[Rfam]
RNA sequence: GAAGUACCUUUCUCGGCACUUGAGGAUGUCAACUGACCAGCUCUCGUAUUUCAUGUCAUAAUAAUAGUCACACUAGGGUGAUAUAACGAGGAGAGAGUUAUAUCAUCCUAGCGCGAUUGUUUUUAUGACAUGAAAUACGUUUUAGAACUUAAAACACUUUGACCUUCUUAAGUGCUGAUAAUGUUUCUUAA
Numbered sequence: 001g002a003a004g005u006a007c008c009u010u011u012c013u014c015g016g017c018a019c020u021u022g023a024g025g026a027u028g029u030c031a032a033c034u035g036a037c038c039a040g041c042u043c044u045c046g047u048a049u050u051u052c053a054u055g056u057c058a059u060a061a062u063a064a065u066a067g068u069c070a071c072a073c074u075a076g077g078g079u080g081a082u083a084u085a086a087c088g089a090g091g092a093g094a095g096a097g098u099u100a101u102a103u104c105a106u107c108c109u110a111g112c113g114c115g116a117u118u119g120u121u122u123u124u125a126u127g128a129c130a131u132g133a134a135a136u137a138c139g140u141u142u143u144a145g146a147a148c149u150u151a152a153a154a155c156a157c158u159u160u161g162a163c164c165u166u167c168u169u170a171a172g173u174g175c176u177g178a179u180a181a182u183g184u185u186u187c188u189u190a191a
Stems, first nucleotide, its partner, number of pairs: 002189002006185001008183001010181002013178014028163002031159002034156002041145002045139017063121007073111015
Dot-bracket structure: .((..(.(.((.((((((((((((((.((.((.((.....((..(((((((((((((((((.(((((((...(((((((((((((((.........)))))))))))))))...))))))).)))))))))))))))))....)).........)).))..)).)))))))))))))).)).).)..))..
MIR868 microRNA precursor family: a 191-nucleotide RNA sequence from Arabidopsis lyrata. Rfam links the family to the GO terms miRNA-mediated post-transcriptional gene silencing and RISC complex. The source organism's lineage runs through Eukaryota, Viridiplantae, Embryophyta, Pentapetalae and Arabidopsis.